RNA sequence: GUCAGGAAGAGGAAGAAACGAGUGUCUAAGAGCAGUGAGCAUGGGAACAUGGAGGAAAGCCAAACUUUUCUUUACCUCUACAACUAGGGGUGGAGAUUAGUGUUUCCCGAUGCCUCCCAUGCCUAUUGUUCUUAGUUACUCCUUCCCCUUCCUUUUGGCU
Numbered sequence: 001g002u003c004a005g006g007a008a009g010a011g012g013a014a015g016a017a018a019c020g021a022g023u024g025u026c027u028a029a030g031a032g033c034a035g036u037g038a039g040c041a042u043g044g045g046a047a048c049a050u051g052g053a054g055g056a057a058a059g060c061c062a063a064a065c066u067u068u069u070c071u072u073u074a075c076c077u078c079u080a081c082a083a084c085u086a087g088g089g090g091u092g093g094a095g096a097u098u099a100g101u102g103u104u105u106c107c108c109g110a111u112g113c114c115u116c117c118c119a120u121g122c123c124u125a126u127u128g129u130u131c132u133u134a135g136u137u138a139c140u141c142c143u144u145c146c147c148c149u150u151c152c153u154u155u156u157g158g159c160u
Stems, first nucleotide, its partner, number of pairs: 009151004015145003020141003026135009036125002039122008048112003052108001054107002057105004
The family of this 160-nucleotide RNA from Miscanthus lutarioriparius is "MIR2118 microRNA precursor family". The match comes from Rfam's covariance-model search (140 bits). For this family Rfam cites "Characterization and expression profiles of miRNAs in rice seeds" (Xue et al., Nucleic Acids Res, 2009). The organism belongs to Miscanthus, within Eukaryota. Its family is annotated with miRNA-mediated post-transcriptional gene silencing and RISC complex in the Gene Ontology.